[Rfam]
RNA: Small nucleolar RNA SNORA43
Organism: Sorex araneus
RNA sequence: AGUGCCCUGCGGAUGCUGAGCUGAGCGCCUCAGACAUGGCUGCCCGGAUGCAUCUGUGACAACAGGGCACACAGUAAGUGGCUAUUUCUACGCUCAGUGUCCAGACCCAUGGGCACUAAGAAUGGUUUGUAGCCUCACAUUG
Numbered sequence: 001a002g003u004g005c006c007c008u009g010c011g012g013a014u015g016c017u018g019a020g021c022u023g024a025g026c027g028c029c030u031c032a033g034a035c036a037u038g039g040c041u042g043c044c045c046g047g048a049u050g051c052a053u054c055u056g057u058g059a060c061a062a063c064a065g066g067g068c069a070c071a072c073a074g075u076a077a078g079u080g081g082c083u084a085u086u087u088c089u090a091c092g093c094u095c096a097g098u099g100u101c102c103a104g105a106c107c108c109a110u111g112g113g114c115a116c117u118a119a120g121a122a123u124g125g126u127u128u129g130u131a132g133c134c135u136c137a138c139a140u141u142g
Base pairs, nucleotide, nucleotide: 003069004068005067006066007065008064009063031056032055033054080134081133082132088125089124090123093120094119098115099114100113101112102111103110